[Rfam]
RNA sequence: GGGGGGGUCGGAAACCUCCCAAAGAGAAGGAG
Number, nucleotide and partner (000 for none) at each position: 001g020002g019003g018004g017005g000006g016007g015008u014009c000010g000011g000012a000013a000014a008015c007016c006017u004018c003019c002020c001021a000022a000023a000024g000025a000026g000027a000028a000029g000030g000031a000032g000
RNA: L31-Coriobacteria ribosomal protein leader